[Rfam]
RNA sequence: CAUUCAUAAGCCGGAACGAAAAGAACUUAGGAAGAUAAUGAUUUCAAAGCGCUUUUGGCGAGUGAUGUGAUGUUGUGUUUGCAGAUUGGGCCGCCAUUGCGGACCCCCUUUUUCUUAAAUCCGUUUUGGAUAUAUUUUUCUGUCUGUCCAUAGAGAAAAGUAGCACCGCGCCUGCGGUGCUUUUUUUG
Numbered sequence: 001c002a003u004u005c006a007u008a009a010g011c012c013g014g015a016a017c018g019a020a021a022a023g024a025a026c027u028u029a030g031g032a033a034g035a036u037a038a039u040g041a042u043u044u045c046a047a048a049g050c051g052c053u054u055u056u057g058g059c060g061a062g063u064g065a066u067g068u069g070a071u072g073u074u075g076u077g078u079u080u081g082c083a084g085a086u087u088g089g090g091c092c093g094c095c096a097u098u099g100c101g102g103a104c105c106c107c108c109u110u111u112u113u114c115u116u117a118a119a120u121c122c123g124u125u126u127u128g129g130a131u132a133u134a135u136u137u138u139u140c141u142g143u144c145u146g147u148c149c150a151u152a153g154a155g156a157a158a159a160g161u162a163g164c165a166c167c168g169c170g171c172c173u174g175c176g177g178u179g180c181u182u183u184u185u186u187u188g
Base pairs, nucleotide, nucleotide: 010059011058012057015056016055021054022053023052026049028048031045032044033043035042036041088105089104091102092101093100094099111119112118132161133160135159162181163180164179165178166177167176168175169174
RNA: GcvB RNA